[Rfam]
RNA sequence: CUUACCGGAGGUUAUAUGGAACCUGAUCCCACGCCUCUCCCUCGACGGAGAUUAAAACUUUUCCGGUAAGCCCGUCUUUUCACGGCGUUACCGGAUGCGUAAGGCCGUGACGUUUU
Numbered sequence: 001c002u003u004a005c006c007g008g009a010g011g012u013u014a015u016a017u018g019g020a021a022c023c024u025g026a027u028c029c030c031a032c033g034c035c036u037c038u039c040c041c042u043c044g045a046c047g048g049a050g051a052u053u054a055a056a057a058c059u060u061u062u063c064c065g066g067u068a069a070g071c072c073c074g075u076c077u078u079u080u081c082a083c084g085g086c087g088u089u090a091c092c093g094g095a096u097g098c099g100u101a102a103g104g105c106c107g108u109g110a111c112g113u114u115u116u
Stems, first nucleotide, its partner, number of pairs: 001070011017031003036051005082108005088102004
RNA: Magnesium riboswitch aptamer (Magnesium responsive RNA element)